[Rfam]
RNA sequence: UCUAGAACUCGAAAUAUAGGCUAAACACUGAACAAUAUCUAGGCGGCAGGACAACUUUAAAACUUCUCUUUUGAUGCUAAGAUUUGGACUUAUAAACGGUACAAUUGAGUCUUGGACUCUUCAUGGAUGUUUUAAGCCUAUGUCUUAGCUUUCUAGC
Numbered sequence: 001u002c003u004a005g006a007a008c009u010c011g012a013a014a015u016a017u018a019g020g021c022u023a024a025a026c027a028c029u030g031a032a033c034a035a036u037a038u039c040u041a042g043g044c045g046g047c048a049g050g051a052c053a054a055c056u057u058u059a060a061a062a063c064u065u066c067u068c069u070u071u072u073g074a075u076g077c078u079a080a081g082a083u084u085u086g087g088a089c090u091u092a093u094a095a096a097c098g099g100u101a102c103a104a105u106u107g108a109g110u111c112u113u114g115g116a117c118u119c120u121u122c123a124u125g126g127a128u129g130u131u132u133u134a135a136g137c138c139u140a141u142g143u144c145u146u147a148g149c150u151u152u153c154u155a156g157c
Base pairs, nucleotide, nucleotide: 002156003155004154005153006152007151008148009147011146012145014143015142016141017140018139019138020137022134023133024132025131027130028129035124036123041120042119043118048113049112050111051110052109054106056104057103060100063099064098070092073089075087
A member of the RNA family "MIR2912 microRNA precursor family" from Populus tomentosa, 157 nucleotides long.
Taxonomically the source falls in Populus (Eukaryota, Streptophytina, eudicotyledons, Gunneridae).